[Rfam]
RNA sequence: GAGUUACGGUCAGUAGCGAGGUUAAGGUGUGAUAGCCGGAGCCGAAGCGAAAGCGAGUCUGAAUAGGGCGACUAGUUGCUGGCAGUAGACCCGAAACCAGGUGAGCUAUCCAUGUCCAGACUGAAGCGGGAGUAAAAUUUCGUGGAGGGUCGAACCGGUGUACGUUGCAAAGUGCUCGGAUGAGGUGUGGAUAGGGGUGAAAUGCCAAACGAACCUGGAGAUAGCUGGUU
Numbered sequence: 001g002a003g004u005u006a007c008g009g010u011c012a013g014u015a016g017c018g019a020g021g022u023u024a025a026g027g028u029g030u031g032a033u034a035g036c037c038g039g040a041g042c043c044g045a046a047g048c049g050a051a052a053g054c055g056a057g058u059c060u061g062a063a064u065a066g067g068g069c070g071a072c073u074a075g076u077u078g079c080u081g082g083c084a085g086u087a088g089a090c091c092c093g094a095a096a097c098c099a100g101g102u103g104a105g106c107u108a109u110c111c112a113u114g115u116c117c118a119g120a121c122u123g124a125a126g127c128g129g130g131a132g133u134a135a136a137a138u139u140u141c142g143u144g145g146a147g148g149g150u151c152g153a154a155c156c157g158g159u160g161u162a163c164g165u166u167g168c169a170a171a172g173u174g175c176u177c178g179g180a181u182g183a184g185g186u187g188u189g190g191a192u193a194g195g196g197g198u199g200a201a202a203u204g205c206c207a208a209a210c211g212a213a214c215c216u217g218g219a220g221a222u223a224g225c226u227g228g229u230u
Stems, first nucleotide, its partner, number of pairs: 005087003009083009020043004026037003047054002057069004090228002093225001097218006106194011117182001119151004126143006155179003160175004196206003